[Rfam]
RNA sequence: GGGGCGAUGGCGGAAUCGGCAGACGCAACGGACUUAAAAUCCGUCGAUGGAGACAUCGUGAGGGUUCGACCCCCUCUCGCCCCA
Number, nucleotide and partner (000 for none) at each position: 001g083002g082003g081004g080005c079006g078007a077008u000009g000010g026011c025012g024013g000014a000015a000016u000017c000018g000019g000020c000021a000022g000023a000024c012025g011026c010027a000028a044029c043030g042031g041032a040033c000034u000035u000036a000037a000038a000039a000040u032041c031042c030043g029044u028045c000046g000047a000048u000049g000050g000051a000052g000053a000054c000055a000056u000057c000058g000059u000060g076061a075062g074063g073064g072065u000066u000067c000068g000069a000070c000071c000072c064073c063074c062075u061076c060077u007078c006079g005080c004081c003082c002083c001084a000

tRNA: an 84-nucleotide RNA sequence from Longilinea arvoryzae.
The match comes from Rfam's covariance-model search (58 bits).
Lineage of the source: Bacteria > Anaerolineae > Anaerolineales > Anaerolineaceae > Longilinea.